[Rfam]
Overview
Shown here is a 72-nucleotide RNA from Perkinsela sp. CCAP 1560/4, a member of the family "tRNA". Rfam classes the family as a transfer RNA.
RNA sequence: GGCCGCAUGGUCUAGUGGUAUGAUUCUUGCUUUGGGUGCAAGAGGCCACGGGUUCGAUUCCCGUUGCGGCCC
Number, nucleotide and partner (000 for none) at each position: 001g071002g070003c069004c068005g067006c066007a065008u000009g000010g024011u023012c022013u000014a000015g000016u000017g000018g000019u000020a000021u000022g012023a011024u010025u000026c042027u041028u040029g039030c038031u000032u000033u000034g000035g000036g000037u000038g030039c029040a028041a027042g026043a000044g000045g000046c000047c000048a064049c063050g062051g061052g060053u000054u000055c000056g000057a000058u000059u000060c052061c051062c050063g049064u048065u007066g006067c005068g004069g003070c002071c001072c000